RNA sequence: UCGGGGCCAAGCAACCCCCCGGUCAGGCAUCCCUUGCCCAAGCGUUGC
Dot-bracket structure: ((((((....[[[[[.))))))...((((.....)))).....]]]]]